The family of this 139-nucleotide sequence from Hordeum vulgare is "Small nucleolar RNA Z247". The base pairs follow the family's consensus structure, which was predicted with PFOLD. Rfam classes the family as a C/D-box small nucleolar RNA. The organism belongs to Hordeum vulgare, within Eukaryota. It scores 40 bits against the family's covariance model.

RNA sequence: CCGCUCGGAGAUGCCGAGAUCAUCUCUCACGUCAUAGCCGGCCUCGACAUCGACUACAAUCCCGUGAUCUCGGCCUUGGCCGCGCGGGUCGAACCGGUCACGGUUCAGGAGCUCUACAACCAGCUUCUAAGCUUCGACG
Numbered sequence: 001c002c003g004c005u006c007g008g009a010g011a012u013g014c015c016g017a018g019a020u021c022a023u024c025u026c027u028c029a030c031g032u033c034a035u036a037g038c039c040g041g042c043c044u045c046g047a048c049a050u051c052g053a054c055u056a057c058a059a060u061c062c063c064g065u066g067a068u069c070u071c072g073g074c075c076u077u078g079g080c081c082g083c084g085c086g087g088g089u090c091g092a093a094c095c096g097g098u099c100a101c102g103g104u105u106c107a108g109g110a111g112c113u114c115u116a117c118a119a120c121c122a123g124c125u126u127c128u129a130a131g132c133u134u135c136g137a138c139g
Base pairs, nucleotide, nucleotide: 005137006136007135008134089108091106092105093104094103